[Rfam]
Shown here is a 227-nucleotide sequence from Streptomyces alboflavus, a member of the family "Streptomyces sRNA 4677".
Pairs were carried over by alignment from the consensus structure.
It is annotated as a small RNA.
Rfam's curators write: Located in the intergenic region between anti-sigma factor SCO4677 gene and a putative regulatory protein gene SCO4676. scr4677 expression requires the SCO4677 activity and scr4677 sRNA itself seem to affect the levels of the SCO4676-associated transcripts.
The match comes from Rfam's covariance-model search (134 bits).
A reference for the family is Hindra et al. (2014), "Complex intra-operonic dynamics mediated by a small RNA in Streptomyces coelicolor", PLoS One.
Lineage of the source: Bacteria > Bacillati > Actinomycetota > Kitasatosporales > Streptomyces.

RNA sequence: CGACCCGGUAGGGCCCGAGGCCAAAAGAAAAGAACCGGGGAAAUUACCUACCCCACCCCACCCGUCCCGUCGCUCACUCGCGCGGGUGAACAUGGCCAACUCGGCUGGCAUAUACGGCAGUCGAUGGUGCAGCGUCAGCGGCGACAACCCAAGACAUGAAACGGCCCUCGCUGGGACUGGCAUCCCGGUGCGAGGGCCUGUUCACCAAGGAAGAGAGACGCUUCCUG
Numbered sequence: 001c002g003a004c005c006c007g008g009u010a011g012g013g014c015c016c017g018a019g020g021c022c023a024a025a026a027g028a029a030a031a032g033a034a035c036c037g038g039g040g041a042a043a044u045u046a047c048c049u050a051c052c053c054c055a056c057c058c059c060a061c062c063c064g065u066c067c068c069g070u071c072g073c074u075c076a077c078u079c080g081c082g083c084g085g086g087u088g089a090a091c092a093u094g095g096c097c098a099a100c101u102c103g104g105c106u107g108g109c110a111u112a113u114a115c116g117g118c119a120g121u122c123g124a125u126g127g128u129g130c131a132g133c134g135u136c137a138g139c140g141g142c143g144a145c146a147a148c149c150c151a152a153g154a155c156a157u158g159a160a161a162c163g164g165c166c167c168u169c170g171c172u173g174g175g176a177c178u179g180g181c182a183u184c185c186c187g188g189u190g191c192g193a194g195g196g197c198c199u200g201u202u203c204a205c206c207a208a209g210g211a212a213g214a215g216a217g218a219c220g221c222u223u224c225c226u227g
Stems, first nucleotide, its partner, number of pairs: 007206003074089006104139005163198005169192003173186004209225005